[Rfam]
Shown here is a 73-nucleotide RNA from Morganella morganii, a member of the family "MicA sRNA". The base pairs follow the family's consensus structure, which was predicted with WAR. NCBI's taxonomy places the organism under Bacteria, Gammaproteobacteria, Enterobacterales, Morganella, Morganella morganii subsp. morganii. Rfam classes the family as a small RNA. Rfam links the family to the GO term mRNA binding.
RNA sequence: GAAAGACGCGCAAAUUGUUAUCAUCCCUAUUCUCUGAGAGAUUUAUUUUGGCCACAUUGAUUGUGGCCAUUUU
Dot-bracket structure: .......................((.((........)).))........(((((((.....))))))).....
Numbered sequence: 001g002a003a004a005g006a007c008g009c010g011c012a013a014a015u016u017g018u019u020a021u022c023a024u025c026c027c028u029a030u031u032c033u034c035u036g037a038g039a040g041a042u043u044u045a046u047u048u049u050g051g052c053c054a055c056a057u058u059g060a061u062u063g064u065g066g067c068c069a070u071u072u073u
Stems, first nucleotide, its partner, number of pairs: 024041002027038002050068007